[Rfam]
RNA sequence: AUGCCAGUUCUAUGUGUCUGCUCAACUUGAAAAUGUUUUGCAGAGCAUAUUUUAAAAUGACACUGGUAAAGUAAAGCCACAGUACGAGCCUUGAAGACCUUGUUGUCUUUGAGGUCCCAAGAGAUGGCUACAUCU
Numbered sequence: 001a002u003g004c005c006a007g008u009u010c011u012a013u014g015u016g017u018c019u020g021c022u023c024a025a026c027u028u029g030a031a032a033a034u035g036u037u038u039u040g041c042a043g044a045g046c047a048u049a050u051u052u053u054a055a056a057a058u059g060a061c062a063c064u065g066g067u068a069a070a071g072u073a074a075a076g077c078c079a080c081a082g083u084a085c086g087a088g089c090c091u092u093g094a095a096g097a098c099c100u101u102g103u104u105g106u107c108u109u110u111g112a113g114g115u116c117c118c119a120a121g122a123g124a125u126g127g128c129u130a131c132a133u134c135u
Base pairs, nucleotide, nucleotide: 003067004066005065006064007063017044018043019042020041021040076128077127078126079125088115089114090113091112092111093110094109096107097106098105